A. fumigatus sRNA Afu_309: a 295-nucleotide RNA from Viridothelium virens. The match comes from Rfam's covariance-model search (136 bits). Pairs were carried over by alignment from the consensus structure, which was predicted with WAR.

[Rfam]
RNA sequence: CAAAUUUUUUCUUCCCCAGAUCUGUGUCCAGAACUCCCAGCACACUUUGGCUUUGGUCAUUGGGUCUUGUUUGGUCUGAGUCCGGGACAGUUCGGCAUCAAGGAGCCAUCCAAACCUAUGUGGUGUCAAUCUUCCAGCCGACAGAUCUCAGACCGACAUGGCAUUCUGACUCCCUGCCUGAGCUCCCUGUGGGUGAGCUCGGUAAGUGUUGGGAUGACCAGGCGCGCCAUAUUCUGGUCUACGGCUGAUGCGCGUUGUGCUGUGAUGCUUAGAAAAACCAUGGCUGCGUACAUUC
Numbered sequence: 001c002a003a004a005u006u007u008u009u010u011c012u013u014c015c016c017c018a019g020a021u022c023u024g025u026g027u028c029c030a031g032a033a034c035u036c037c038c039a040g041c042a043c044a045c046u047u048u049g050g051c052u053u054u055g056g057u058c059a060u061u062g063g064g065u066c067u068u069g070u071u072u073g074g075u076c077u078g079a080g081u082c083c084g085g086g087a088c089a090g091u092u093c094g095g096c097a098u099c100a101a102g103g104a105g106c107c108a109u110c111c112a113a114a115c116c117u118a119u120g121u122g123g124u125g126u127c128a129a130u131c132u133u134c135c136a137g138c139c140g141a142c143a144g145a146u147c148u149c150a151g152a153c154c155g156a157c158a159u160g161g162c163a164u165u166c167u168g169a170c171u172c173c174c175u176g177c178c179u180g181a182g183c184u185c186c187c188u189g190u191g192g193g194u195g196a197g198c199u200c201g202g203u204a205a206g207u208g209u210u211g212g213g214a215u216g217a218c219c220a221g222g223c224g225c226g227c228c229a230u231a232u233u234c235u236g237g238u239c240u241a242c243g244g245c246u247g248a249u250g251c252g253c254g255u256u257g258u259g260c261u262g263u264g265a266u267g268c269u270u271a272g273a274a275a276a277a278c279c280a281u282g283g284c285u286g287c288g289u290a291c292a293u294u295c
Base pairs, nucleotide, nucleotide: 018148019147020146021145022144023143024142025141026088027087028086029085031083033081034080035079036078037074038073039072040071041069042068044065045064046063048059049058050057051056096140098136102127103126105124106123107122160218162216166211175204176203177202178201180200181199182198183197184196185195186193187192223288224287225286226284227283228282229281230280239272240271241270244268245267250260251259252258253257

NCBI's taxonomy places the organism under Eukaryota, Opisthokonta, Ascomycota, leotiomyceta, Viridothelium.